The family of this 153-nucleotide RNA sequence from Intestinibacter bartlettii is "glmS glucosamine-6-phosphate activated ribozyme aptamer". It scores 94 bits against the family's covariance model. The family's consensus secondary structure is taken from published work. By type it is a riboswitch.
RNA sequence: AGUGUUUAUAAAGCGCCAGAACUUAAUUUUUUAAGUUGACGAGGUCAGAGUUAAUCGAAAUAUCGGCGGAUGCUCUGCGGUGUGCCACCAUCGAAGGAUUUCUACAAAGGGUGAAAGCAAUUUCACUACACAAAAAGAAACCCAUGUGGAUUG
Numbered sequence: 001a002g003u004g005u006u007u008a009u010a011a012a013g014c015g016c017c018a019g020a021a022c023u024u025a026a027u028u029u030u031u032u033a034a035g036u037u038g039a040c041g042a043g044g045u046c047a048g049a050g051u052u053a054a055u056c057g058a059a060a061u062a063u064c065g066g067c068g069g070a071u072g073c074u075c076u077g078c079g080g081u082g083u084g085c086c087a088c089c090a091u092c093g094a095a096g097g098a099u100u101u102c103u104a105c106a107a108a109g110g111g112u113g114a115a116a117g118c119a120a121u122u123u124c125a126c127u128a129c130a131c132a133a134a135a136a137g138a139a140a141c142c143c144a145u146g147u148g149g150a151u152u153g
Stems, first nucleotide, its partner, number of pairs: 020037007046077005055066004078093005096143002099140004110127007